A member of the RNA family "Caenorhabditis snoRNA ceN80" from Caenorhabditis brenneri, 131 nucleotides long. The family has 5 seed sequences and 20 matches in Rfam 15.1. The literature on the family includes a 2007 paper in BMC Mol Biol by Jia et al., "Systematic identification of non-coding RNA 2,2,7-trimethylguanosine cap structures in Caenorhabditis elegans".
[Rfam]
RNA sequence: AAGCAUUGAAAAGGGACGGUUUUUCUAAUUAGAACAUUCCGUAUAAUUUUGGUGCAAUAGCAUAGAGAGCCGCAGUGUUACUCUUCUUUACAAAUCCUGUAUCUGGAGAGUGUCAAGCGGUUCCCACAAUC
Numbered sequence: 001a002a003g004c005a006u007u008g009a010a011a012a013g014g015g016a017c018g019g020u021u022u023u024u025c026u027a028a029u030u031a032g033a034a035c036a037u038u039c040c041g042u043a044u045a046a047u048u049u050u051g052g053u054g055c056a057a058u059a060g061c062a063u064a065g066a067g068a069g070c071c072g073c074a075g076u077g078u079u080a081c082u083c084u085u086c087u088u089u090a091c092a093a094a095u096c097c098u099g100u101a102u103c104u105g106g107a108g109a110g111u112g113u114c115a116a117g118c119g120g121u122u123c124c125c126a127c128a129a130u131c
Stems, first nucleotide, its partner, number of pairs: 003055009016042004024033003065125001067123007076115002079112008089101004